[Rfam]
RNA sequence: CGGGACGCUGACACAUCAUGUUUAUUAUCACCCGCCUAACCAGCCUACUACUUCACGCAUCUUAUUUGCGCGGUAUGGCGGUGGCCGGGAUCCCAAACUGAUUCAGCCCUCUCCCAGAUAAAAACCCGCGCCAUUGCGCGGGUUUUUUU
Numbered sequence: 001c002g003g004g005a006c007g008c009u010g011a012c013a014c015a016u017c018a019u020g021u022u023u024a025u026u027a028u029c030a031c032c033c034g035c036c037u038a039a040c041c042a043g044c045c046u047a048c049u050a051c052u053u054c055a056c057g058c059a060u061c062u063u064a065u066u067u068g069c070g071c072g073g074u075a076u077g078g079c080g081g082u083g084g085c086c087g088g089g090a091u092c093c094c095a096a097a098c099u100g101a102u103u104c105a106g107c108c109c110u111c112u113c114c115c116a117g118a119u120a121a122a123a124a125c126c127c128g129c130g131c132c133a134u135u136g137c138g139c140g141g142g143u144u145u146u147u148u149u
Base pairs, nucleotide, nucleotide: 004109007107008106009105010104011103016101017100018099020098021097022096023095028088029087032084033083034082035081036080049075050074051073052072056070057069058068059067121146122145123144124143125142126141127140128139129138130137131136
The family of this 149-nucleotide RNA sequence from Chimaeribacter arupi is "Leucine operon leader".
Pairs were carried over by alignment from the consensus structure, which is taken from published work.
For this family Rfam cites "Attenuation in amino acid biosynthetic operons" (Kolter and Yanofsky, Annu Rev Genet, 1982).
Rfam's curators write: At least 6 amino acid operons are known to be regulated by attenuation. In each a leader sequence of 150-200 bp is found upstream of the first gene in the operon. This leader sequence can assume two different secondary structures known as the terminator and the anti-terminator structure. In each case the leader also codes for very short peptide sequence that is rich in the end product amino acid of the operon. The terminator structure is recognised as a termination signal for RNA polymerase and the operon is not transcribed. This structure forms when the cell has an excess of the regulatory amino acid and ribosome movement over the leader transcript is not impeded. When there is a deficiency of the charged tRNA of the regulatory amino acid the ribosome translating the leader peptide stalls and the antiterminator structure can form. This allows RNA polymerase to transcribe the operon. In the Rfam alignment the consensus structure is of the terminator. The alternative consensus structure is the antiterminator structure.